[Rfam]
This 299-nucleotide RNA from Frankliniella occidentalis belongs to the Rfam family "Metazoan signal recognition particle RNA".
The literature on the family includes a 2002 paper in Curr Opin Struct Biol by Wild et al., "Towards the structure of the mammalian signal recognition particle".
The family's consensus secondary structure is taken from published work.
About the family: The signal recognition particle (SRP) is a universally conserved ribonucleoprotein. It is involved in the co-translational targeting of proteins to membranes. The eukaryotic SRP consists of a 300-nucleotide 7S RNA and six proteins: SRPs 72, 68, 54, 19, 14, and 9.
Clan: SRP clan.
The source organism's lineage runs through Eukaryota, Bilateria, Arthropoda, Pancrustacea and Frankliniella.
RNA sequence: GCUGGGAGUCGCGGCGCGCUCCUGUAAUCCAGCUACUUGGAGGCCGGGUGCAGAGGAUGGUUUGAGGUCGGGAGUCCUGUCGUGCAGUCGUCCUGCGACGACUGGGCGUCCGCACUAAGCUCGUCAUCGAUAUGGGUACCCUGGAGGAGUCCGGGGUAGCCAGGUCGGCUAAGGAGGGGCGAAUCGGGCCAGGGGGGUAACCCAGCAGCCAAAAGUCCCCGUGGUGUGCAGUAGUGGGACCGCGCCUGGGAGUAGGACCUGCAUGGCAGCCCGACCAAUAGAGUCAGACCUGUACCUUU
Numbered sequence: 001g002c003u004g005g006g007a008g009u010c011g012c013g014g015c016g017c018g019c020u021c022c023u024g025u026a027a028u029c030c031a032g033c034u035a036c037u038u039g040g041a042g043g044c045c046g047g048g049u050g051c052a053g054a055g056g057a058u059g060g061u062u063u064g065a066g067g068u069c070g071g072g073a074g075u076c077c078u079g080u081c082g083u084g085c086a087g088u089c090g091u092c093c094u095g096c097g098a099c100g101a102c103u104g105g106g107c108g109u110c111c112g113c114a115c116u117a118a119g120c121u122c123g124u125c126a127u128c129g130a131u132a133u134g135g136g137u138a139c140c141c142u143g144g145a146g147g148a149g150u151c152c153g154g155g156g157u158a159g160c161c162a163g164g165u166c167g168g169c170u171a172a173g174g175a176g177g178g179g180c181g182a183a184u185c186g187g188g189c190c191a192g193g194g195g196g197g198u199a200a201c202c203c204a205g206c207a208g209c210c211a212a213a214a215g216u217c218c219c220c221g222u223g224g225u226g227u228g229c230a231g232u233a234g235u236g237g238g239a240c241c242g243c244g245c246c247u248g249g250g251a252g253u254a255g256g257a258c259c260u261g262c263a264u265g266g267c268a269g270c271c272c273g274a275c276c277a278a279u280a281g282a283g284u285c286a287g288a289c290c291u292g293u294a295c296c297u298u299u
Stems, first nucleotide, its partner, number of pairs: 001044003004023006028041003046297008058286006066276007077269011092256005102249008110238002113236005119229002122226006128167004133162003137158009169173001176219005187210003194203003